[Rfam]
RNA sequence: GAUUAUCAAGGCACUUCUUAUUGUGGUGGGAUCGCGCAUGGGCAGGACGGUGUAACCGUUCGGCAGUAGCCUCCCAUGCGCGACAAACGGCUCCCUCAAGGGGGCUUUUUUUAUGCCCGAAA
Numbered sequence: 001g002a003u004u005a006u007c008a009a010g011g012c013a014c015u016u017c018u019u020a021u022u023g024u025g026g027u028g029g030g031a032u033c034g035c036g037c038a039u040g041g042g043c044a045g046g047a048c049g050g051u052g053u054a055a056c057c058g059u060u061c062g063g064c065a066g067u068a069g070c071c072u073c074c075c076a077u078g079c080g081c082g083a084c085a086a087a088c089g090g091c092u093c094c095c096u097c098a099a100g101g102g103g104g105c106u107u108u109u110u111u112u113a114u115g116c117c118c119g120a121a122a
Base pairs, nucleotide, nucleotide: 007028029118030117032115033082034081035080036079037078038077039076040075041074042073045061046060047059048058049057050056063070064069087107089106090105091104092103093102094101095100